RNA sequence: CAAGGCAUCCGCGGGAGCCCGGCGCACCGGGCUGAGAGGGAGGCGUUCUCCGGCCUCCGACCGUACGCACCUGAUCCGGGUCAUGCCGGCGAAGGGAGGAGGCGCGUGGACACG
Numbered sequence: 001c002a003a004g005g006c007a008u009c010c011g012c013g014g015g016a017g018c019c020c021g022g023c024g025c026a027c028c029g030g031g032c033u034g035a036g037a038g039g040g041a042g043g044c045g046u047u048c049u050c051c052g053g054c055c056u057c058c059g060a061c062c063g064u065a066c067g068c069a070c071c072u073g074a075u076c077c078g079g080g081u082c083a084u085g086c087c088g089g090c091g092a093a094g095g096g097a098g099g100a101g102g103c104g105c106g107u108g109g110a111c112a113c114g
Base pairs, nucleotide, nucleotide: 006102008100009099010098011064012063013062014061017032018031019030020029021028039058040057041056042055043054070095071094072093076089077088078087079086